[Rfam]
Rfam assigns this 130-nucleotide RNA from Streptomyces cinnamoneus to the family "Streptomyces RNA 5676". Pairs were carried over by alignment from the consensus structure. About the family: Identified by deep sequencing of transcriptome at the end of exponential growth phase. Appears longer on northern blot than sequencing transcript. The source organism's lineage runs through Bacteria, Bacillati, Actinomycetes, Streptomycetaceae and Streptomyces. A reference for the family is Vockenhuber et al. (2011), "Deep sequencing-based identification of small non-coding RNAs in Streptomyces coelicolor", RNA Biol. Rfam classes the family as a small RNA.

RNA sequence: GGAUGAACGAAACACCCCGUCCGCAGGGGACUGCGGGCGAUGCCGUGCCGGUACAUCCCCAGUGCCGGAACGGCCGUGCCUUCGCGCACACCACCGGGGCCCCGGGCCCCGGACAUCCUCACCGAUCGGA
Numbered sequence: 001g002g003a004u005g006a007a008c009g010a011a012a013c014a015c016c017c018c019g020u021c022c023g024c025a026g027g028g029g030a031c032u033g034c035g036g037g038c039g040a041u042g043c044c045g046u047g048c049c050g051g052u053a054c055a056u057c058c059c060c061a062g063u064g065c066c067g068g069a070a071c072g073g074c075c076g077u078g079c080c081u082u083c084g085c086g087c088a089c090a091c092c093a094c095c096g097g098g099g100c101c102c103c104g105g106g107c108c109c110c111g112g113a114c115a116u117c118c119u120c121a122c123c124g125a126u127c128g129g130a
Stems, first nucleotide, its partner, number of pairs: 004121003009117002018039009042074005049067006076089004094112008122129002